MIR473 microRNA precursor family: an 89-nucleotide RNA from Manihot esculenta. Gene Ontology terms of the family: miRNA-mediated post-transcriptional gene silencing and RISC complex. Taxonomically the source falls in Manihot (Eukaryota, Spermatophyta, Magnoliopsida, Malpighiales). A reference for the family is Lu et al. (2005), "Novel and mechanical stress-responsive MicroRNAs in Populus trichocarpa that are absent from Arabidopsis", Plant Cell.

RNA sequence: AUUACUCACUCUCCCUCAAGGGCUUCUGCGUGUUUCUGGUCGAAAGACCAAAUACUUACGCAGAAGACCUUAGGGAGAGUGGAUAAUAC
Numbered sequence: 001a002u003u004a005c006u007c008a009c010u011c012u013c014c015c016u017c018a019a020g021g022g023c024u025u026c027u028g029c030g031u032g033u034u035u036c037u038g039g040u041c042g043a044a045a046g047a048c049c050a051a052a053u054a055c056u057u058a059c060g061c062a063g064a065a066g067a068c069c070u071u072a073g074g075g076a077g078a079g080u081g082g083a084u085a086a087u088a089c
Stems, first nucleotide, its partner, number of pairs: 006082010018071004023066010